This 117-nucleotide RNA sequence from Iodidimonas nitroreducens belongs to the Rfam family "ALIL pseudoknot". Taxonomically the source falls in Iodidimonas (Bacteria, Pseudomonadati, Pseudomonadota, Iodidimonadales).

[Rfam]
RNA sequence: AGCAUAUUUUGCUCAGGCGGAGCUCGACCGCCCGUUUCGCAAAUGAUCGCGUUUAUCGAUGAUAACCGUGAAGACUAUGGGGUCGAGCCGAUUUGCAAAGUUCUGCCAAUUGCCCCG
Dot-bracket structure: ...............(((((.......))))).............................................(((((......((.((.(((......))).)).)))))))
Numbered sequence: 001a002g003c004a005u006a007u008u009u010u011g012c013u014c015a016g017g018c019g020g021a022g023c024u025c026g027a028c029c030g031c032c033c034g035u036u037u038c039g040c041a042a043a044u045g046a047u048c049g050c051g052u053u054u055a056u057c058g059a060u061g062a063u064a065a066c067c068g069u070g071a072a073g074a075c076u077a078u079g080g081g082g083u084c085g086a087g088c089c090g091a092u093u094u095g096c097a098a099a100g101u102u103c104u105g106c107c108a109a110u111u112g113c114c115c116c117g
Stems, first nucleotide, its partner, number of pairs: 016032005078117005089112002092109002095106003